Overview: Shown here is a 172-nucleotide sequence from Desulfobulbus propionicus, a member of the family "6S / SsrS RNA". For this family Rfam cites "6S RNA in Rhodobacter sphaeroides: 6S RNA and pRNA transcript levels peak in late exponential phase and gene deletion causes a high salt stress phenotype" (Elkina et al., RNA Biol, 2017). By type it is a non-coding RNA gene.
RNA sequence: GUACCCCUGCUCUGUUGGUGAUCAGCGAAGUAUUGAGCCAACUCGUAUGAUAAGGGUAGCCUUAAUCCUGCAUGAUGGAAAUCUUUAUUGACUCCCAGACGGUAGGAGGGGCACUGCCCACCUAAUCUAAUUAGGUUUAAUCAUUUCGUUGACACGGCAGCGCGGGGGGCUU
Numbered sequence: 001g002u003a004c005c006c007c008u009g010c011u012c013u014g015u016u017g018g019u020g021a022u023c024a025g026c027g028a029a030g031u032a033u034u035g036a037g038c039c040a041a042c043u044c045g046u047a048u049g050a051u052a053a054g055g056g057u058a059g060c061c062u063u064a065a066u067c068c069u070g071c072a073u074g075a076u077g078g079a080a081a082u083c084u085u086u087a088u089u090g091a092c093u094c095c096c097a098g099a100c101g102g103u104a105g106g107a108g109g110g111g112c113a114c115u116g117c118c119c120a121c122c123u124a125a126u127c128u129a130a131u132u133a134g135g136u137u138u139a140a141u142c143a144u145u146u147c148g149u150u151g152a153c154a155c156g157g158c159a160g161c162g163c164g165g166g167g168g169g170c171u172u
Stems, first nucleotide, its partner, number of pairs: 004168007012160004018155002034139006054119003058115002061111003066107006077095002082091002